[Rfam]
RNA sequence: UGUUGGACUGUGCUUAAAGUAAAUAGUCUGGAUUGAUGAAAGUUAUAUUCAAGAAUUCAUCAACAGGCAUUUACUUCAACUGCAGUUUAAAC
Numbered sequence: 001u002g003u004u005g006g007a008c009u010g011u012g013c014u015u016a017a018a019g020u021a022a023a024u025a026g027u028c029u030g031g032a033u034u035g036a037u038g039a040a041a042g043u044u045a046u047a048u049u050c051a052a053g054a055a056u057u058c059a060u061c062a063a064c065a066g067g068c069a070u071u072u073a074c075u076u077c078a079a080c081u082g083c084a085g086u087u088u089a090a091a092c
Base pairs, nucleotide, nucleotide: 003090004089005088006087007086008085009084010083011082012081014079015078017076018075019074020073021072022071023070024069026068027067028066029065030064033063034062035061036060037059038058039057040056043052044051
mir-987 microRNA precursor family: a 92-nucleotide RNA from Drosophila pseudoobscura. The base pairs follow the family's consensus structure, which was predicted with RNAalifold. The family has 4 seed sequences and 18 matches in Rfam 15.1.